The family of this 127-nucleotide RNA from Sorghum bicolor is "Small nucleolar RNA snoR111". The family has 6 seed sequences and 533 matches in Rfam 15.1. Its family is annotated with nucleolus and RNA processing in the Gene Ontology. The base pairs follow the family's consensus structure, which was predicted with WAR. The match comes from Rfam's covariance-model search (53 bits). The source organism's lineage runs through Eukaryota, Spermatophyta, Petrosaviidae, Andropogoneae and Sorghum. The literature on the family includes a 2002 paper in Curr Biol by Marker et al., "Experimental RNomics: identification of 140 candidates for small non-messenger RNAs in the plant Arabidopsis thaliana".
RNA sequence: AUAACGGCGGGGGCACGAAUUCUUCCGUGCUGCGCCGCCCACGCAAGGAGGGGAUAGAUCGACGCGUCAAGAAAUCGUUUCAGUUGCCAUGACUCCAGUAGGCAAUAUGAUUGUUGCUUGACUACAG
Numbered sequence: 001a002u003a004a005c006g007g008c009g010g011g012g013g014c015a016c017g018a019a020u021u022c023u024u025c026c027g028u029g030c031u032g033c034g035c036c037g038c039c040c041a042c043g044c045a046a047g048g049a050g051g052g053g054a055u056a057g058a059u060c061g062a063c064g065c066g067u068c069a070a071g072a073a074a075u076c077g078u079u080u081c082a083g084u085u086g087c088c089a090u091g092a093c094u095c096c097a098g099u100a101g102g103c104a105a106u107a108u109g110a111u112u113g114u115u116g117c118u119u120g121a122c123u124a125c126a127g
Stems, first nucleotide, its partner, number of pairs: 006039005012031006066122001068120004074111004083106006